[Rfam]
RNA sequence: ACAUCGAAAAGGCAAACUUCUCCGAAAGGAAAGGACGCAAAGUCAUGAGCCUGUCCGCUUCUUAAAGCGCAGGGUAGUCAGACUGCCGGG
Numbered sequence: 001a002c003a004u005c006g007a008a009a010a011g012g013c014a015a016a017c018u019u020c021u022c023c024g025a026a027a028g029g030a031a032a033g034g035a036c037g038c039a040a041a042g043u044c045a046u047g048a049g050c051c052u053g054u055c056c057g058c059u060u061c062u063u064a065a066a067g068c069g070c071a072g073g074g075u076a077g078u079c080a081g082a083c084u085g086c087c088g089g090g
Base pairs, nucleotide, nucleotide: 012038013037017033018032019031021030022029023028041084042083043082044081046080047079048078049075050074051073056069057068058067059066
The family of this 90-nucleotide RNA from Alkalicoccus halolimnae is "c-di-GMP-I riboswitch aptamer". The match comes from Rfam's covariance-model search (66 bits). Taxonomically the source falls in Alkalicoccus (Bacteria, Bacilli, Caryophanales, Bacillaceae).